[Rfam]
RNA sequence: AGAUGCCAGGGUCAAAAGAUCAAAAUGUCGUUCUUGCUUGCAAGAUAAGACAUUUGAACUUGGGACCCGCUAAACAUGAGGAAGUAGCUAUUUACGCAGUAAAUAUGCGAAUUCCGAAUGUUUAUAGAAUUGCGAGAGUUACUUGUAACGGAGCAAUUCGCAGGCAUCU
Numbered sequence: 001a002g003a004u005g006c007c008a009g010g011g012u013c014a015a016a017a018g019a020u021c022a023a024a025a026u027g028u029c030g031u032u033c034u035u036g037c038u039u040g041c042a043a044g045a046u047a048a049g050a051c052a053u054u055u056g057a058a059c060u061u062g063g064g065a066c067c068c069g070c071u072a073a074a075c076a077u078g079a080g081g082a083a084g085u086a087g088c089u090a091u092u093u094a095c096g097c098a099g100u101a102a103a104u105a106u107g108c109g110a111a112u113u114c115c116g117a118a119u120g121u122u123u124a125u126a127g128a129a130u131u132g133c134g135a136g137a138g139u140u141a142c143u144u145g146u147a148a149c150g151g152a153g154c155a156a157u158u159c160g161c162a163g164g165c166a167u168c169u
Base pairs, nucleotide, nucleotide: 001169002168003167004166005165006164007163010067011066012065013064016061017060018059020057021056023055024054025053026052027051028050029049031047032045033044034043035042036041071124072123073122074121075120076119077118080115081114082113083112087108088107089105090104091103092102093101094100095099127159128158129157130156131155132154133153138149139148140147141146
A member of the RNA family "Clostridiales-1 RNA" from Firmicutes bacterium CAG:56, 169 nucleotides long. NCBI's taxonomy places the organism under Bacteria, Bacillati, Bacillota.